[Rfam]
RNA sequence: GUGCUCACAAGAACAUUUGUCCUGCCACGUGGCUGCGAUGGGUUCUGGGAAAAUGUGAGCUAGAGCACAAGUAUUGCUUUGGGAGUGUCACAUUCCAGGACAUGUGAGACACUACGGUUUCCAAUACGACA
Numbered sequence: 001g002u003g004c005u006c007a008c009a010a011g012a013a014c015a016u017u018u019g020u021c022c023u024g025c026c027a028c029g030u031g032g033c034u035g036c037g038a039u040g041g042g043u044u045c046u047g048g049g050a051a052a053a054u055g056u057g058a059g060c061u062a063g064a065g066c067a068c069a070a071g072u073a074u075u076g077c078u079u080u081g082g083g084a085g086u087g088u089c090a091c092a093u094u095c096c097a098g099g100a101c102a103u104g105u106g107a108g109a110c111a112c113u114a115c116g117g118u119u120u121c122c123a124a125u126a127c128g129a130c131a
Stems, first nucleotide, its partner, number of pairs: 003060006012044003018040004025032002071127001073125004079117003084113006091106001092103002
Small Cajal body specific RNA 23: a 131-nucleotide RNA sequence from Rhinopomastus cyanomelas.
Rfam links the family to the GO terms RNA processing, nucleolus and Cajal body.
Rfam describes the family as follows. scaRNAs are a specific class of small nuclear RNAs which localise to the Cajal bodies and guide the modification of RNA polymerase II transcribed spliceosomal RNAs U1, U2, U4, U5 and U12. ACA11 belongs to the H/ACA box class of guide RNAs as it has the predicted hairpin-hinge-hairpin-tail structure,the conserved H/ACA-box motifs and is found associated with GAR1. H/ACA snRNAs are predicted to guide the modification of uridines to pseudouridines in substrate RNAs however, no target RNA has been identified for scaRNA ACA11.
The family's RNA type in Rfam is small Cajal body RNA.
The source organism's lineage runs through Eukaryota, Amniota, Coelurosauria, Bucerotiformes and Rhinopomastus.